[Rfam]
RNA sequence: GGACAUAAACGCGCUCAUAAUAAUCGGAUCGGACCCGGGGGCGGUACCCGGCGACUCCACCAAAAUCCGUUCAUUUGGCGGCUGAGGGGUCGAAAUAGGAUCGACGAACGUGUAAAAGGGUUAGCUUUGUUUCGGCGAGAUACCACCGUAUCGGUUCAAAAUGUACAAUUGCAAAUGACAAUCGUGCUCCAAUGGCGAUGGCCGCGUAA
Numbered sequence: 001g002g003a004c005a006u007a008a009a010c011g012c013g014c015u016c017a018u019a020a021u022a023a024u025c026g027g028a029u030c031g032g033a034c035c036c037g038g039g040g041g042c043g044g045u046a047c048c049c050g051g052c053g054a055c056u057c058c059a060c061c062a063a064a065a066u067c068c069g070u071u072c073a074u075u076u077g078g079c080g081g082c083u084g085a086g087g088g089g090u091c092g093a094a095a096u097a098g099g100a101u102c103g104a105c106g107a108a109c110g111u112g113u114a115a116a117a118g119g120g121u122u123a124g125c126u127u128u129g130u131u132u133c134g135g136c137g138a139g140a141u142a143c144c145a146c147c148g149u150a151u152c153g154g155u156u157c158a159a160a161a162u163g164u165a166c167a168a169u170u171g172c173a174a175a176u177g178a179c180a181a182u183c184g185u186g187c188u189c190c191a192a193u194g195g196c197g198a199u200g201g202c203c204g205c206g207u208a209a
Stems, first nucleotide, its partner, number of pairs: 001132005013122001015120002025110002029107003035051005052092007133148003
RNA: permuted transfer-messenger RNA